[Rfam]
RNA sequence: GGGGAGUAUAUUCGCAAGAACGAAACUUAAAGGAAUUGACGGAAAUUCACCACCAGGAGUGGAUUCUGCGGCUUAAUUCGACUCAACGCGUGGAAACUUACCAGAACCAGACUAUGGAAAGAUUGACAAGCUAAUGACUUUUCUUGAUUCGUAGAAUAGUGGUGCAUGGUCGUUCUCAGUUCGUGGAUUGGUCUGUCUACUUAAUUGUGAUAACGAGCGAGACCUCCGUUAUUAAUUAGCAACUCUGUAUUCCUAUUGCUGGAAUCGGUAUUUGGGUUUUUAACCCAUCUUCUUAAUAAGACUCUACUCGAUUCAAUAAAACAGAGUAGGGAAGUUGGAGGCCAUAACAGAUCUGUUAUGCCCUUAUAUAUUCUGGGCGGCACGCGUAAUACAAUGUUUUUGCCAACGAGUUAGGUUAAUCGCCGUACCAAGUUUGAUAAGACAAGGAAAGCUUUUGCAAUCCUUUAUUUCAAGGCUGGGAUUGAAGAUUGUAAGUUCUUCAUGAACCAGGAAUUCCUAGUAAUCGCAAAUCAACAUUUUGCAAUGAUUACGUCCCUGAGUUUUGUACACA
Numbered sequence: 001g002g003g004g005a006g007u008a009u010a011u012u013c014g015c016a017a018g019a020a021c022g023a024a025a026c027u028u029a030a031a032g033g034a035a036u037u038g039a040c041g042g043a044a045a046u047u048c049a050c051c052a053c054c055a056g057g058a059g060u061g062g063a064u065u066c067u068g069c070g071g072c073u074u075a076a077u078u079c080g081a082c083u084c085a086a087c088g089c090g091u092g093g094a095a096a097c098u099u100a101c102c103a104g105a106a107c108c109a110g111a112c113u114a115u116g117g118a119a120a121g122a123u124u125g126a127c128a129a130g131c132u133a134a135u136g137a138c139u140u141u142u143c144u145u146g147a148u149u150c151g152u153a154g155a156a157u158a159g160u161g162g163u164g165c166a167u168g169g170u171c172g173u174u175c176u177c178a179g180u181u182c183g184u185g186g187a188u189u190g191g192u193c194u195g196u197c198u199a200c201u202u203a204a205u206u207g208u209g210a211u212a213a214c215g216a217g218c219g220a221g222a223c224c225u226c227c228g229u230u231a232u233u234a235a236u237u238a239g240c241a242a243c244u245c246u247g248u249a250u251u252c253c254u255a256u257u258g259c260u261g262g263a264a265u266c267g268g269u270a271u272u273u274g275g276g277u278u279u280u281u282a283a284c285c286c287a288u289c290u291u292c293u294u295a296a297u298a299a300g301a302c303u304c305u306a307c308u309c310g311a312u313u314c315a316a317u318a319a320a321a322c323a324g325a326g327u328a329g330g331g332a333a334g335u336u337g338g339a340g341g342c343c344a345u346a347a348c349a350g351a352u353c354u355g356u357u358a359u360g361c362c363c364u365u366a367u368a369u370a371u372u373c374u375g376g377g378c379g380g381c382a383c384g385c386g387u388a389a390u391a392c393a394a395u396g397u398u399u400u401u402g403c404c405a406a407c408g409a410g411u412u413a414g415g416u417u418a419a420u421c422g423c424c425g426u427a428c429c430a431a432g433u434u435u436g437a438u439a440a441g442a443c444a445a446g447g448a449a450a451g452c453u454u455u456u457g458c459a460a461u462c463c464u465u466u467a468u469u470u471c472a473a474g475g476c477u478g479g480g481a482u483u484g485a486a487g488a489u490u491g492u493a494a495g496u497u498c499u500u501c502a503u504g505a506a507c508c509a510g511g512a513a514u515u516c517c518u519a520g521u522a523a524u525c526g527c528a529a530a531u532c533a534a535c536a537u538u539u540u541g542c543a544a545u546g547a548u549u550a551c552g553u554c555c556c557u558g559a560g561u562u563u564u565g566u567a568c569a570c571a
Stems, first nucleotide, its partner, number of pairs: 001028003011020003037569002039566003043563007052553002056517005061392001063390003067386004071381002077092001079090002101376006112154005125143002128140003158364002161362004167358001168356001169352003172348003179218006185194003198209003224340004229299007238290002302331008396471001400467001402465001408454003428447002432443004478507001483502006523545002526542005
Annotation: This 571-nucleotide part of an RNA from Monopylocystis visvesvarai belongs to the Rfam family "Eukaryotic small subunit ribosomal RNA". Taxonomically the source falls in Monopylocystis (Eukaryota, Discoba, Tetramitia, Psalteriomonadidae). The base pairs follow the family's consensus structure, which is taken from published work. Rfam's curators put it in the seed alignment.